A member of the RNA family "Small nucleolar RNA SNORD16" from Python bivittatus, 101 nucleotides long. On this family, see Fragapane et al., EMBO J 1993: "A novel small nucleolar RNA (U16) is encoded inside a ribosomal protein intron and originates by processing of the pre-mRNA". Taxonomically the source falls in Python (Eukaryota, Teleostomi, Dipnotetrapodomorpha, Serpentes).
RNA sequence: UGCUAUGAUGUUGUAAUUUGCGUCUUAUCUGGUAUUCAGGGACAGUUGCCUGUUGUCCAUGUGCUGUUGCCGUUGAACUGAAGACCCUUCAUGACUGAGCA
Numbered sequence: 001u002g003c004u005a006u007g008a009u010g011u012u013g014u015a016a017u018u019u020g021c022g023u024c025u026u027a028u029c030u031g032g033u034a035u036u037c038a039g040g041g042a043c044a045g046u047u048g049c050c051u052g053u054u055g056u057c058c059a060u061g062u063g064c065u066g067u068u069g070c071c072g073u074u075g076a077a078c079u080g081a082a083g084a085c086c087c088u089u090c091a092u093g094a095c096u097g098a099g100c101a
Stems, first nucleotide, its partner, number of pairs: 001101003021083001023081002030072005039064001041057005
Rfam links the family to the GO terms nucleolus and RNA processing. It is annotated as a C/D-box small nucleolar RNA. Its Rfam clan is "SNORD16 clan".